[Rfam]
RNA: Plastid-psbA-1 3UTR RNA
RNA sequence: UGUCGAAGCUCCAUCCACAAAUGGAUAAGGCUUUGUCUUAGUGUAUACGAGUUUUUGAAAGUAAAGGAGCAAUACCCCAAUUUCUUGUUUUAUCAAGAAGGUUCGUAUUGCUCCUUUUU
Numbered sequence: 001u002g003u004c005g006a007a008g009c010u011c012c013a014u015c016c017a018c019a020a021a022u023g024g025a026u027a028a029g030g031c032u033u034u035g036u037c038u039u040a041g042u043g044u045a046u047a048c049g050a051g052u053u054u055u056u057g058a059a060a061g062u063a064a065a066g067g068a069g070c071a072a073u074a075c076c077c078c079a080a081u082u083u084c085u086u087g088u089u090u091u092a093u094c095a096a097g098a099a100g101g102u103u104c105g106u107a108u109u110g111c112u113c114c115u116u117u118u119u
Stems, first nucleotide, its partner, number of pairs: 010025005063117013082099005